[Rfam]
RNA sequence: GGGCAUACCGUAGACCUUGUCUGACUGUGCUCAUGGCCAGACACGGGGGACAGUGUAUGCGAGAGUCAUUUGGAGUUCAUGCAUGCUCUACCCCGCUUAAUCAGUGGCUGGAUAAAUUGCAGUACUCCAGCACUC
Number, nucleotide and partner (000 for none) at each position: 001g000002g000003g060004c059005a058006u057007a056008c055009c000010g000011u000012a000013g000014a000015c046016c045017u000018u043019g042020u041021c040022u039023g038024a000025c000026u000027g000028u000029g000030c000031u000032c000033a000034u000035g000036g000037c000038c023039a022040g021041a020042c019043a018044c000045g016046g015047g000048g000049g000050a000051c000052a000053g000054u000055g008056u007057a006058u005059g004060c003061g000062a000063g000064a000065g000066u000067c000068a000069u000070u000071u000072g128073g127074a126075g125076u000077u124078c000079a000080u121081g120082c119083a000084u000085g000086c000087u000088c000089u000090a000091c000092c111093c110094c000095g108096c107097u000098u000099a000100a000101u000102c000103a000104g000105u000106g000107g096108c095109u000110g093111g092112a000113u000114a000115a000116a000117u000118u000119g082120c081121a080122g000123u000124a077125c075126u074127c073128c072129a000130g000131c000132a000133c000134u000135c000
The record is a 135-nucleotide RNA from Galemys pyrenaicus, which matches "Small nucleolar RNA SNORA58" in Rfam. Rfam links the family to the GO terms nucleolus and RNA processing. The organism belongs to Galemys, within Eukaryota. The family is grouped with related families in Rfam's "SNORA44 clan". Rfam classes the family as an H/ACA-box small nucleolar RNA. The family's consensus secondary structure was predicted with PFOLD. A reference for the family is Huttenhofer et al. (2001), "RNomics: an experimental approach that identifies 201 candidates for novel, small, non-messenger RNAs in mouse", EMBO J.